A member of the RNA family "Plant signal recognition particle RNA" from Handroanthus impetiginosus, 305 nucleotides long. The match comes from Rfam's covariance-model search (262 bits).

[Rfam]
RNA sequence: GCCGAGCCCGGUAACGUGGGCUUAUAACCCAAGUGGGGGCAUUAAGGUGGUUGGACGUUGGGCUAGCUCUGCUGGCUGGGUUGCUGUAAGCUAAUUUCUGGCCUGCCCGUUCCAAGCGGGGAGUCGGAUCAUGUGGCCCGAGCGAAUGCAUGGGCUUUGUGAUCUUUAGAGUGGAGGACACCGCGUCAGGCUGGUUUCACAGAGCAGCGAUAACCUCCCGCUCUCUGCAGUGGAAGGAUAACAGGCCGGUGCUUCAGUCGCCCAAUACAGUCAGCUGGGUUGGCCCUAAUUGAACAACCCCCUUU
Numbered sequence: 001g002c003c004g005a006g007c008c009c010g011g012u013a014a015c016g017u018g019g020g021c022u023u024a025u026a027a028c029c030c031a032a033g034u035g036g037g038g039g040c041a042u043u044a045a046g047g048u049g050g051u052u053g054g055a056c057g058u059u060g061g062g063c064u065a066g067c068u069c070u071g072c073u074g075g076c077u078g079g080g081u082u083g084c085u086g087u088a089a090g091c092u093a094a095u096u097u098c099u100g101g102c103c104u105g106c107c108c109g110u111u112c113c114a115a116g117c118g119g120g121g122a123g124u125c126g127g128a129u130c131a132u133g134u135g136g137c138c139c140g141a142g143c144g145a146a147u148g149c150a151u152g153g154g155c156u157u158u159g160u161g162a163u164c165u166u167u168a169g170a171g172u173g174g175a176g177g178a179c180a181c182c183g184c185g186u187c188a189g190g191c192u193g194g195u196u197u198c199a200c201a202g203a204g205c206a207g208c209g210a211u212a213a214c215c216u217c218c219c220g221c222u223c224u225c226u227g228c229a230g231u232g233g234a235a236g237g238a239u240a241a242c243a244g245g246c247c248g249g250u251g252c253u254u255c256a257g258u259c260g261c262c263c264a265a266u267a268c269a270g271u272c273a274g275c276u277g278g279g280u281u282g283g284c285c286c287u288a289a290u291u292g293a294a295c296a297a298c299c300c301c302c303u304u305u
Stems, first nucleotide, its partner, number of pairs: 001040003004023007028037003044304004049299005056292002058289003061285006068278002071275007078263004083258004088254003092251002098249008107237002110235005116228009126165008135156006142149002166171001173218005184209003191202003